[Rfam]
Shown here is a 103-nucleotide sequence from Alkaliphilus pronyensis, a member of the family "dinG RNA". The source organism's lineage runs through Bacteria, Bacillati, Clostridia, Natronincolaceae and Alkaliphilus. The family's consensus secondary structure is taken from published work. Rfam classes the family as a small RNA.
RNA sequence: AACGAUACUUCUGCCAAGUCCUAAGCAUCCUAUGGAUGGCAGCCUGAAAGAUCAUCAGGAGAAUACAGCCUUUGCCUGGAAGCCAAUGGCAUAGGUUGCUUCU
Numbered sequence: 001a002a003c004g005a006u007a008c009u010u011c012u013g014c015c016a017a018g019u020c021c022u023a024a025g026c027a028u029c030c031u032a033u034g035g036a037u038g039g040c041a042g043c044c045u046g047a048a049a050g051a052u053c054a055u056c057a058g059g060a061g062a063a064u065a066c067a068g069c070c071u072u073u074g075c076c077u078g079g080a081a082g083c084c085a086a087u088g089g090c091a092u093a094g095g096u097u098g099c100u101u102c103u
Stems, first nucleotide, its partner, number of pairs: 011042005043059005060103004066098001068096002073091004